[Rfam]
Shown here is a 63-nucleotide sequence from Adineta ricciae, a member of the family "Selenocysteine insertion sequence 1".
Rfam classes the family as a cis-regulatory element.
Its family is annotated with selenocysteine incorporation in the Gene Ontology.
The organism belongs to Adineta, within Eukaryota.
It scores 36 bits against the family's covariance model.
RNA sequence: GGGAUUCACAUGAUGGUUAUUACCUAAACUGUUCAUCAGAGGGUAAUAGCCUGAUAAUAUCUU
Numbered sequence: 001g002g003g004a005u006u007c008a009c010a011u012g013a014u015g016g017u018u019a020u021u022a023c024c025u026a027a028a029c030u031g032u033u034c035a036u037c038a039g040a041g042g043g044u045a046a047u048a049g050c051c052u053g054a055u056a057a058u059a060u061c062u063u
Base pairs, nucleotide, nucleotide: 001063002062003061004060005059015051016050017049018048019047020046021045022044023043024042029039030038031037